Rfam assigns this 122-nucleotide RNA to the family "Betaproteobacteria-1 RNA". Pairs were carried over by alignment from the consensus structure, which is taken from published work.
RNA sequence: GUCUUAGAUGGACGGCUAAAAACACCAGCGUCUAGGAUACAAGUGCUACUGGGGGAUAGUUGAUGUAACAGCACACAAAUCGGUGGCGAAGCUAGUGCCGAUUCAACGAACGACUGGCGGGU
Numbered sequence: 001g002u003c004u005u006a007g008a009u010g011g012a013c014g015g016c017u018a019a020a021a022a023c024a025c026c027a028g029c030g031u032c033u034a035g036g037a038u039a040c041a042a043g044u045g046c047u048a049c050u051g052g053g054g055g056a057u058a059g060u061u062g063a064u065g066u067a068a069c070a071g072c073a074c075a076c077a078a079a080u081c082g083g084u085g086g087c088g089a090a091g092c093u094a095g096u097g098c099c100g101a102u103u104c105a106a107c108g109a110a111c112g113a114c115u116g117g118c119g120g121g122u
Stems, first nucleotide, its partner, number of pairs: 001038010025052004043074005060106004079102006091118006
Rfam classes the family as a small RNA.